[Rfam]
RNA sequence: UUCAUCUUGUCGGAGUGCCUAUUUUCCAUGCGCAGGCUAACGUGGAAAAGGCUGAGACCGUUAAUUCGGGAUCCGCGGAACCUGAUCAGGCUAAUACCUGCGAAGGGAACAAGAGUAAACUGCUG
Numbered sequence: 001u002u003c004a005u006c007u008u009g010u011c012g013g014a015g016u017g018c019c020u021a022u023u024u025u026c027c028a029u030g031c032g033c034a035g036g037c038u039a040a041c042g043u044g045g046a047a048a049a050g051g052c053u054g055a056g057a058c059c060g061u062u063a064a065u066u067c068g069g070g071a072u073c074c075g076c077g078g079a080a081c082c083u084g085a086u087c088a089g090g091c092u093a094a095u096a097c098c099u100g101c102g103a104a105g106g107g108a109a110c111a112a113g114a115g116u117a118a119a120c121u122g123c124u125g
Stems, first nucleotide, its partner, number of pairs: 006113005011075004016069001017052004059068002081106003087100004
RNA: TPP riboswitch aptamer (THI element)